[Rfam]
RNA sequence: UUUUUAUUGGAUGUUAACCGUCAUGUGUUCUAUUUUUAUUGAAUGUUAACUUUGUGCACCUAAUUUGAGGAACGCCUAAUAAAAGUGCGACACCUGACAAUCAACGUCC
Number, nucleotide and partner (000 for none) at each position: 001u000002u000003u000004u000005u000006a000007u000008u000009g000010g000011a000012u000013g000014u000015u000016a000017a000018c000019c000020g098021u097022c096023a095024u000025g093026u092027g000028u000029u089030c000031u087032a000033u085034u084035u083036u082037u000038a080039u079040u078041g000042a000043a000044u000045g000046u000047u000048a000049a000050c000051u000052u000053u000054g000055u000056g000057c000058a000059c000060c000061u000062a000063a000064u000065u000066u000067g000068a000069g000070g000071a000072a000073c000074g000075c000076c000077u000078a040079a039080u038081a000082a036083a035084a034085g033086u000087g031088c000089g029090a000091c000092a026093c025094c000095u023096g022097a021098c020099a000100a000101u000102c000103a000104a000105c000106g000107u000108c000109c000
The record is a 109-nucleotide RNA sequence from Glycine max, which matches "MIR1520 microRNA precursor family" in Rfam.
Taxonomically the source falls in Glycine subgen. Soja (Eukaryota, Streptophytina, Spermatophyta, rosids).
A search with the family's covariance model found it, with a score of 55 bits.